[Rfam]
Background:
The family of this 74-nucleotide sequence from Arctia plantaginis is "isrJ Hfq binding RNA".

RNA sequence: AAUAAUACUGAUAUCGCAUACUUACAUAGAUAGUAAGCCUAACUAAUUGAGUCUCCACGGUACCGUGGAGACUC
Numbered sequence: 001a002a003u004a005a006u007a008c009u010g011a012u013a014u015c016g017c018a019u020a021c022u023u024a025c026a027u028a029g030a031u032a033g034u035a036a037g038c039c040u041a042a043c044u045a046a047u048u049g050a051g052u053c054u055c056c057a058c059g060g061u062a063c064c065g066u067g068g069a070g071a072c073u074c
Stems, first nucleotide, its partner, number of pairs: 016038002019035001021033001050073010
The source organism's lineage runs through Eukaryota, Bilateria, Neolepidoptera, Noctuoidea and Arctia.